A member of the RNA family "ASpks TB sRNA" from Micromonospora nigra, 75 nucleotides long.

RNA sequence: CUUGAUCGAGCCCAGCCACAGCGGACGGUCGGCCGGCCGGUCCUGCCCGUAGGUGGCCAACAGCGCCUGCGCCUC
Numbered sequence: 001c002u003u004g005a006u007c008g009a010g011c012c013c014a015g016c017c018a019c020a021g022c023g024g025a026c027g028g029u030c031g032g033c034c035g036g037c038c039g040g041u042c043c044u045g046c047c048c049g050u051a052g053g054u055g056g057c058c059a060a061c062a063g064c065g066c067c068u069g070c071g072c073c074u075c
Base pairs, nucleotide, nucleotide: 016024017023032070033069038065039064044059045058047056048055049054